Annotation:
The record is an 85-nucleotide RNA from Setaria italica, which matches "Small nucleolar RNA snoR27" in Rfam. Taxonomically the source falls in Setaria (Eukaryota, Streptophytina, Tracheophyta, Poales). Rfam links the family to the GO terms RNA processing and nucleolus. The family has 6 seed sequences and 649 matches in Rfam 15.1. The family's consensus secondary structure was predicted with WAR. On this family, see Brown et al., RNA 2001: "Multiple snoRNA gene clusters from Arabidopsis".
RNA sequence: CAGGAUCCAUGAUGCAAUUGUCAACUGCGUUAUCUUUCUGCAACCUUUAAGGUGCUGAAGAAUACAAUGUCUGCUGAGAUCCAUG
Numbered sequence: 001c002a003g004g005a006u007c008c009a010u011g012a013u014g015c016a017a018u019u020g021u022c023a024a025c026u027g028c029g030u031u032a033u034c035u036u037u038c039u040g041c042a043a044c045c046u047u048u049a050a051g052g053u054g055c056u057g058a059a060g061a062a063u064a065c066a067a068u069g070u071c072u073g074c075u076g077a078g079a080u081c082c083a084u085g
Stems, first nucleotide, its partner, number of pairs: 001085002003082004
Dot-bracket structure: ((((((........................................................................)))).))